[Rfam]
RNA sequence: AGCACUUUGUGGUAUCUGCAGCCAGUUGCUUCAUCAGCUGGUUUGUUCAAAAGCUAGUGCGAGACAAAACUCAACAUCUGGCAUCGUUGGUCUCCGUGCUGCCUGUGCCUGGAGUCCUGGUAUUUGUGUUGAGACACUC
Numbered sequence: 001a002g003c004a005c006u007u008u009g010u011g012g013u014a015u016c017u018g019c020a021g022c023c024a025g026u027u028g029c030u031u032c033a034u035c036a037g038c039u040g041g042u043u044u045g046u047u048c049a050a051a052a053g054c055u056a057g058u059g060c061g062a063g064a065c066a067a068a069a070c071u072c073a074a075c076a077u078c079u080g081g082c083a084u085c086g087u088u089g090g091u092c093u094c095c096g097u098g099c100u101g102c103c104u105g106u107g108c109c110u111g112g113a114g115u116c117c118u119g120g121u122a123u124u125u126g127u128g129u130u131g132a133g134a135c136a137c138u139c
Stems, first nucleotide, its partner, number of pairs: 002060005015053001017051001018046004023041001024039005064127005071120003080109005